[Rfam]
RNA sequence: AGAUACCGGCCAUUCAAACAUGAGGAUUACCCAUGU
Numbered sequence: 001a002g003a004u005a006c007c008g009g010c011c012a013u014u015c016a017a018a019c020a021u022g023a024g025g026a027u028u029a030c031c032c033a034u035g036u
Base pairs, nucleotide, nucleotide: 018036019035020034021033022032024031025030